Background:
Rfam assigns this 351-nucleotide sequence from Loktanella fryxellensis to the family "Alphaproteobacteria transfer-messenger RNA". A search with the family's covariance model found it, with a score of 292 bits. The base pairs follow the family's consensus structure, which is taken from published work. The source organism's lineage runs through Bacteria, Pseudomonadati, Alphaproteobacteria, Roseobacteraceae and Loktanella. Rfam describes the family as follows. Bacterial tmRNA, also known as 10Sa RNA or SsrA, is named for its dual tRNA and mRNA-like properties. For this family Rfam cites "tmRDB (tmRNA database)" (Zwieb et al., Nucleic Acids Res, 2003). By type it is a non-coding RNA gene.

[Rfam]
RNA sequence: UCCCUUGCAACGCGCGCACAGCGCGCCUAUGUCUGGCAUGUCUUUCGGGACUAUGGACAUAAACGCGCUCGUAAUAAGCGGAUCGGACCCGGGGGCGGUACCCGGCGUCUCCACCAAUACUCUGGUCAUUUGCCAGCGAUGGGGACGAAACAGGAUCGACGAACGUCUAAAGGGGUAUUGCUUUGUCCCGGUGAGUUACCACCGUUAUCGGUACGCAAAAGCUAGUUGCAAAUGACAACAAAGCACCGAUGGCCCUCGCAGCGUAAGCUGUGCGGAAAAUCGAAACCUAAGCCCUAGCGUUUUGCGACGUUAGGCGGGGUCCGCAGGUACCUGGCAACAGAAACCUGCACC
Numbered sequence: 001u002c003c004c005u006u007g008c009a010a011c012g013c014g015c016g017c018a019c020a021g022c023g024c025g026c027c028u029a030u031g032u033c034u035g036g037c038a039u040g041u042c043u044u045u046c047g048g049g050a051c052u053a054u055g056g057a058c059a060u061a062a063a064c065g066c067g068c069u070c071g072u073a074a075u076a077a078g079c080g081g082a083u084c085g086g087a088c089c090c091g092g093g094g095g096c097g098g099u100a101c102c103c104g105g106c107g108u109c110u111c112c113a114c115c116a117a118u119a120c121u122c123u124g125g126u127c128a129u130u131u132g133c134c135a136g137c138g139a140u141g142g143g144g145a146c147g148a149a150a151c152a153g154g155a156u157c158g159a160c161g162a163a164c165g166u167c168u169a170a171a172g173g174g175g176u177a178u179u180g181c182u183u184u185g186u187c188c189c190g191g192u193g194a195g196u197u198a199c200c201a202c203c204g205u206u207a208u209c210g211g212u213a214c215g216c217a218a219a220a221g222c223u224a225g226u227u228g229c230a231a232a233u234g235a236c237a238a239c240a241a242a243g244c245a246c247c248g249a250u251g252g253c254c255c256u257c258g259c260a261g262c263g264u265a266a267g268c269u270g271u272g273c274g275g276a277a278a279a280u281c282g283a284a285a286c287c288u289a290a291g292c293c294c295u296a297g298c299g300u301u302u303u304g305c306g307a308c309g310u311u312a313g314g315c316g317g318g319g320u321c322c323g324c325a326g327g328u329a330c331c332u333g334g335c336a337a338c339a340g341a342a343a344c345c346u347g348c349a350c351c
Base pairs, nucleotide, nucleotide: 040051041050042049043048055188056187057186058185059184065181066180067176068175069174070173079165080164083162084161085160089105090104091103092102093101106147107146108145109144110143111142112141189204190203191202192201195214196213198212199211200210317332318331319330320329323348324347325346326345327344328343